[Rfam]
RNA sequence: UUAAUUCUUCGGGGCAGGGUGAGCUGAGAUGCAAUUCCCUACCGGCGGUUAAAGCCCGCGAGUCAGAUUUAUCUGAUUGAAUUGGUGAGAUUCCAAUGCCGACGGUAUAGUCCGGACGUGAGAAGAUGUUG
Numbered sequence: 001u002u003a004a005u006u007c008u009u010c011g012g013g014g015c016a017g018g019g020u021g022a023g024c025u026g027a028g029a030u031g032c033a034a035u036u037c038c039c040u041a042c043c044g045g046c047g048g049u050u051a052a053a054g055c056c057c058g059c060g061a062g063u064c065a066g067a068u069u070u071a072u073c074u075g076a077u078u079g080a081a082u083u084g085g086u087g088a089g090a091u092u093c094c095a096a097u098g099c100c101g102a103c104g105g106u107a108u109a110g111u112c113c114g115g116a117c118g119u120g121a122g123a124a125g126a127u128g129u130u131g
Stems, first nucleotide, its partner, number of pairs: 003129001006126005017039003041111002043101002045059004054099002062077003081097005103114003
FMN riboswitch aptamer (RFN element): a 131-nucleotide sequence from Oceanispirochaeta sp. M1. The base pairs follow the family's consensus structure, which is taken from published work. Its family is annotated with FMN binding in the Gene Ontology. About the family: The RFN element is a highly conserved domain that is found frequently in the 5'-untranslated regions of prokaryotic mRNAs that encode for flavin mononucleotide (FMN) biosynthesis and transport proteins.